[Rfam]
RNA sequence: GUCCGAGACUGGGUCUUUGCGGGCAAGGUGACUUCAUUUAUUCAACUGGCCUACAAAGUCCCAGUUUCUGGC
Numbered sequence: 001g002u003c004c005g006a007g008a009c010u011g012g013g014u015c016u017u018u019g020c021g022g023g024c025a026a027g028g029u030g031a032c033u034u035c036a037u038u039u040a041u042u043c044a045a046c047u048g049g050c051c052u053a054c055a056a057a058g059u060c061c062c063a064g065u066u067u068c069u070g071g072c
Stems, first nucleotide, its partner, number of pairs: 003070001005068004010063004015058005021052004026047002029044002
mir-193 microRNA precursor family: a 72-nucleotide RNA sequence from Neogobius melanostomus. Taxonomically the source falls in Neogobius (Eukaryota, Gnathostomata, Clupeocephala, Ctenosquamata).